[Rfam]
RNA sequence: UUACUUACCUGGACGGGGUCAAUGGGCGAUCAAUAAGAUCCAUGGCCUAGGCUUGUGACCUCCAUUGCACUUUGGAGGGGUGCCUGCCUAAGGUCGGCCCAAGUGGUCGAGCCUACGUCAUAAUUUGUGGUAGAGGGGGCCUGCGUUCGCCUGCCCAGU
Numbered sequence: 001u002u003a004c005u006u007a008c009c010u011g012g013a014c015g016g017g018g019u020c021a022a023u024g025g026g027c028g029a030u031c032a033a034u035a036a037g038a039u040c041c042a043u044g045g046c047c048u049a050g051g052c053u054u055g056u057g058a059c060c061u062c063c064a065u066u067g068c069a070c071u072u073u074g075g076a077g078g079g080g081u082g083c084c085u086g087c088c089u090a091a092g093g094u095c096g097g098c099c100c101a102a103g104u105g106g107u108c109g110a111g112c113c114u115a116c117g118u119c120a121u122a123a124u125u126u127g128u129g130g131u132a133g134a135g136g137g138g139g140c141c142u143g144c145g146u147u148c149g150c151c152u153g154c155c156c157a158g159u
Stems, first nucleotide, its partner, number of pairs: 012119004016048006023042004049089003053086001055083003059079003062075002091114003094110003098106002136156003140153001143150002
This 159-nucleotide RNA from Capsicum annuum belongs to the Rfam family "U1 spliceosomal RNA". It scores 132 bits against the family's covariance model. The source organism's lineage runs through Eukaryota, Gunneridae, lamiids, Capsiceae and Capsicum. U1 is a small nuclear RNA (snRNA) component of the spliceosome (involved in pre-mRNA splicing). Its 5' end forms complementary base pairs with the 5' splice junction, thus defining the 5' donor site of an intron. There are significant differences in sequence and secondary structure between metazoan and yeast U1 snRNAs, the latter being much longer (568 nucleotides as compared to 164 nucleotides in human). Nevertheless, secondary structure predictions suggest that all U1 snRNAs share a 'common core' consisting of helices I, II, the proximal region of III, and IV. This family does not contain the larger yeast sequences. The family's RNA type in Rfam is spliceosomal small nuclear RNA.